This 102-nucleotide sequence from Chlamydia muridarum belongs to the Rfam family "Bacterial small signal recognition particle RNA". Taxonomically the source falls in Chlamydia muridarum (Bacteria, Pseudomonadati, Chlamydiia, Chlamydiales). The signal recognition particle (SRP) is a universally conserved ribonucleoprotein involved in the co-translational targeting of proteins to membranes. The sequence is in the family's curated seed alignment.
RNA sequence: GUCGGGGACCUCUUAAGAUGAGAGACUUCUGAACCGGGUCAGGAUCGGAAGAUAGCAGCCCUAAGGAAAGGCCUUUUGUGCUAAGAGUCUUCUCUGACUUAC
Numbered sequence: 001g002u003c004g005g006g007g008a009c010c011u012c013u014u015a016a017g018a019u020g021a022g023a024g025a026c027u028u029c030u031g032a033a034c035c036g037g038g039u040c041a042g043g044a045u046c047g048g049a050a051g052a053u054a055g056c057a058g059c060c061c062u063a064a065g066g067a068a069a070g071g072c073c074u075u076u077u078g079u080g081c082u083a084a085g086a087g088u089c090u091u092c093u094c095u096g097a098c099u100u101a102c
Base pairs, nucleotide, nucleotide: 004094005093006092007091008090010087011086012085013084014083015082018077020075021074022073027067028066029065030064036061037060038059039058044053045052046051